[Rfam]
RNA sequence: UCCCUCAUUCGCUCAGUAGUCAGUGUAGAUCCUGUCCCUUUCAAUCAGCAGCUACAUCUGGCUACUGGGUCUCUGAUGGCAUCU
Numbered sequence: 001u002c003c004c005u006c007a008u009u010c011g012c013u014c015a016g017u018a019g020u021c022a023g024u025g026u027a028g029a030u031c032c033u034g035u036c037c038c039u040u041u042c043a044a045u046c047a048g049c050a051g052c053u054a055c056a057u058c059u060g061g062c063u064a065c066u067g068g069g070u071c072u073c074u075g076a077u078g079g080c081a082u083c084u
Base pairs, nucleotide, nucleotide: 013068014067015066016065017064018063020061021060022059023057024056025055026054027053028052032051033050034049035048

A member of the RNA family "mir-221 microRNA precursor family" from Sarcophilus harrisii, 84 nucleotides long.
The literature on the family includes a 2009 paper in BMC Genomics by Soares et al., "Parallel DNA pyrosequencing unveils new zebrafish microRNAs".
NCBI's taxonomy places the organism under Eukaryota, Opisthokonta, Metazoa, Euteleostomi, Sarcophilus.
Its family is annotated with RISC complex and miRNA-mediated post-transcriptional gene silencing in the Gene Ontology.
The base pairs follow the family's consensus structure, which was predicted with RNAalifold.